[Rfam]
RNA: Small Cajal body specific RNA 8
RNA sequence: AGGGAGGAGGAUACCUGGGCAGGGCUGGUCAGUGCUCUGCCCGUCGCUAGUCCUCCCUAGAGCAGCCCUGCUCUCUGAUGACCGAGGUGACCUGAGAGAAAUCACAGCGGACAGAUACGGAGCAGACACGU
Numbered sequence: 001a002g003g004g005a006g007g008a009g010g011a012u013a014c015c016u017g018g019g020c021a022g023g024g025c026u027g028g029u030c031a032g033u034g035c036u037c038u039g040c041c042c043g044u045c046g047c048u049a050g051u052c053c054u055c056c057c058u059a060g061a062g063c064a065g066c067c068c069u070g071c072u073c074u075c076u077g078a079u080g081a082c083c084g085a086g087g088u089g090a091c092c093u094g095a096g097a098g099a100a101a102u103c104a105c106a107g108c109g110g111a112c113a114g115a116u117a118c119g120g121a122g123c124a125g126a127c128a129c130g131u
Stems, first nucleotide, its partner, number of pairs: 002057006016043003022037004068125007082110003087105004